[Rfam]
RNA sequence: AUGGGAUCUAUGAUGCGACUGAUAUAUAUAUAUACGGCGUUGUCUUUCUGUAAAUUCCUACGAGGAAUUGAAGAUAAUUGUAACAUUCUGAGAUCUCAU
Numbered sequence: 001a002u003g004g005g006a007u008c009u010a011u012g013a014u015g016c017g018a019c020u021g022a023u024a025u026a027u028a029u030a031u032a033u034a035c036g037g038c039g040u041u042g043u044c045u046u047u048c049u050g051u052a053a054a055u056u057c058c059u060a061c062g063a064g065g066a067a068u069u070g071a072a073g074a075u076a077a078u079u080g081u082a083a084c085a086u087u088c089u090g091a092g093a094u095c096u097c098a099u
Base pairs, nucleotide, nucleotide: 001099002098003097004096005095006094007093008092009091
The family of this 99-nucleotide RNA from Tripterygium wilfordii is "Small nucleolar RNA snoR27". On this family, see Brown et al., RNA 2001: "Multiple snoRNA gene clusters from Arabidopsis".